[Rfam]
RNA sequence: UGGCCAAGGAUGAAAACCACAGUCUGAUUGGGCAUGCUUUCCAUGCUCUGAUGGGUUAAAGGAUUUACCUGAGGCCA
Dot-bracket structure: .((((...................................................................)))).
RNA: Small nucleolar RNA SNORD93
Organism: Monodelphis domestica